[Rfam]
RNA sequence: CUUCACACUACAUCCUCGCGACUAAUGACAACCCUUAUCUCAUGCGCGAGAUAAAGUCUCUCAUUAGCCGCGCGAACCUCUGUACCGGAAGAUCCUCAACAAUACAUUAACCUGAUUUGCUUAUGCUUCCUAGAAGAAAGGGGCCAAAAUAGGCCCCUUUCC
Numbered sequence: 001c002u003u004c005a006c007a008c009u010a011c012a013u014c015c016u017c018g019c020g021a022c023u024a025a026u027g028a029c030a031a032c033c034c035u036u037a038u039c040u041c042a043u044g045c046g047c048g049a050g051a052u053a054a055a056g057u058c059u060c061u062c063a064u065u066a067g068c069c070g071c072g073c074g075a076a077c078c079u080c081u082g083u084a085c086c087g088g089a090a091g092a093u094c095c096u097c098a099a100c101a102a103u104a105c106a107u108u109a110a111c112c113u114g115a116u117u118u119g120c121u122u123a124u125g126c127u128u129c130c131u132a133g134a135a136g137a138a139a140g141g142g143g144c145c146a147a148a149a150u151a152g153g154c155c156c157c158u159u160u161c162c
Stems, first nucleotide, its partner, number of pairs: 001091004006087001010083003017074004022067007097114001140157006

Background
The family of this 162-nucleotide sequence from Serratia odorifera is "SraG RNA". The match comes from Rfam's covariance-model search (143 bits). A reference for the family is Fontaine et al. (2016), "The small RNA SraG participates in PNPase homeostasis", RNA. This RNA was discovered in E. coli during a large scale screen. Evidence was found for specific cleavage of this RNA. It is annotated as a small RNA. Pairs were carried over by alignment from the consensus structure, which was predicted with PFOLD.